[Rfam]
Nucleotides: 065
Base pairs, nucleotide, nucleotide: 004055005054006053007052008051010030011029012028013027014026015025016024017023041064042063043062044061045060046058047057
Number, partner (000 for none) and nucleotide at each position: 001000u002000a003000a004055c005054g006053u007052u008051c009000a010030c011029c012028u013027u014026g015025u016024a017023u018000c019000a020000c021000u022000u023017g024016u025015g026014c027013g028012a029011g030010g031000c032000g033000c034000a035000u036000a037000a038000a039000u040000g041064a042063c043062u044061g045060g046058c047057c048000a049000c050000g051008g052007a053006a054005c055004g056000g057047g058046g059000a060045c061044c062043a063042g064041u065000g
The record is a 65-nucleotide RNA, which matches "Glutamine-II riboswitch aptamer" in Rfam. Rfam links the family to the GO term glutamine binding. The sequence is in the family's curated seed alignment.